Rfam assigns this 76-nucleotide RNA sequence from Aquilegia coerulea to the family "Small nucleolar RNA Z155". Pairs were carried over by alignment from the consensus structure. It is annotated as a C/D-box small nucleolar RNA. Its family is annotated with nucleolus and RNA processing in the Gene Ontology.
RNA sequence: CGUUGAUGUGAUGAUGAUUUUAUCGGAAAAGUAAUGUGUCGAUUGUAAAAUUCAGACUACAAUUAUCUGAUCAACG
Numbered sequence: 001c002g003u004u005g006a007u008g009u010g011a012u013g014a015u016g017a018u019u020u021u022a023u024c025g026g027a028a029a030a031g032u033a034a035u036g037u038g039u040c041g042a043u044u045g046u047a048a049a050a051u052u053c054a055g056a057c058u059a060c061a062a063u064u065a066u067c068u069g070a071u072c073a074a075c076g
Base pairs, nucleotide, nucleotide: 001076002075003074004073005072006071